[Rfam]
RNA sequence: UCGCGCUCGACGCCGAAUCCGGUCGCGAGACCGGAACCGGGGAACCAUCGUUCGCCCGACAGGCUUCGGAACCCACCCGGCCUUCCGGCCGGUCCGAGAGCGUGUCAUGCGAACCGGGGUGAAUCGGCCCCACCACGCCGACCGCGUGCCCGCUUCAUCGCCGCGGCCUGCGCGGUGCGCGCCGUAGGGCACUUUCCGCCCGAACCCGUCAGCUCACCCGGUAGGCGGCAGGAAAGUGACC
Dot-bracket structure: ..........((((...(((((((....)))))))((((((....(.....................................................................)(((.....((((....................................................))))..((((.......))))...))).........)))))).))))..............
The record is a 241-nucleotide RNA from Actinocrinis puniceicyclus, which matches "c-di-AMP riboswitch aptamer (ydaO/yuaA leader)" in Rfam. About the family: This family represents a conserved RNA structure found upstream of the ydaO and yuaA genes in Bacillus subtilis and related genes in other bacteria. The source organism's lineage runs through Bacteria, Actinomycetota, Actinomycetes, Catenulisporales and Actinocrinis.